[Rfam]
RNA sequence: AAACAGCCUCCUAUGUAUUGGAUCUUUGGCAGUUUUGGCCUCCAAAACCACUUUUGACUUAAUCUUCGCUGACGUGGCACCCACAUCCCUUAAGCGAGGUAUCACGUUUCGACCAUUGUGGGUGCCACGUCAACAAAGACUAAAUCAAAAGUGGUCUUGGGAGCUAAAACUGUCAAAGAUCCAAUACAUAGGGGAUUGUUU
Number, nucleotide and partner (000 for none) at each position: 001a201002a200003a000004c198005a197006g196007c000008c194009u000010c000011c000012u190013a189014u188015g187016u186017a185018u184019u183020g182021g181022a180023u179024c178025u177026u176027u175028g174029g173030c172031a171032g170033u169034u168035u167036u166037g165038g164039c163040c000041u161042c160043c159044a158045a157046a000047a000048c000049c000050a000051c000052u000053u000054u000055u000056g000057a000058c000059u000060u000061a000062a000063u000064c000065u000066u000067c000068g000069c000070u000071g000072a130073c129074g000075u127076g126077g125078c124079a123080c122081c121082c120083a000084c000085a000086u000087c000088c000089c000090u000091u000092a000093a000094g000095c000096g000097a000098g000099g000100u000101a000102u000103c000104a000105c000106g000107u000108u000109u000110c000111g000112a000113c000114c000115a000116u000117u000118g000119u000120g082121g081122g080123u079124g078125c077126c076127a075128c000129g073130u072131c000132a000133a000134c000135a000136a000137a000138g000139a000140c000141u000142a000143a000144a000145u000146c000147a000148a000149a000150a000151g000152u000153g000154g000155u000156c000157u045158u044159g043160g042161g041162a000163g039164c038165u037166a036167a035168a034169a033170c032171u031172g030173u029174c028175a027176a026177a025178g024179a023180u022181c021182c020183a019184a018185u017186a016187c015188a014189u013190a012191g000192g000193g000194g008195a000196u006197u005198g004199u000200u002201u001
RNA: MIR2619 microRNA precursor family